[Rfam]
RNA sequence: GCGACUCUGGAAAGUCAGGGCAUCGACGCCCUGCGCCCAAGGUGCAAGCCGCCACCACCACGGCGGUGAAGCUCUCAGGCACCAUGACAGAGCGGGGAGG
Numbered sequence: 001g002c003g004a005c006u007c008u009g010g011a012a013a014g015u016c017a018g019g020g021c022a023u024c025g026a027c028g029c030c031c032u033g034c035g036c037c038c039a040a041g042g043u044g045c046a047a048g049c050c051g052c053c054a055c056c057a058c059c060a061c062g063g064c065g066g067u068g069a070a071g072c073u074c075u076c077a078g079g080c081a082c083c084a085u086g087a088c089a090g091a092g093c094g095g096g097g098a099g100g
Stems, first nucleotide, its partner, number of pairs: 002095001005092005016033004035080003039075001042074001044072001048067006
This 100-nucleotide sequence from Dactylosporangium sucinum belongs to the Rfam family "Glycine riboswitch aptamer". It scores 51 bits against the family's covariance model.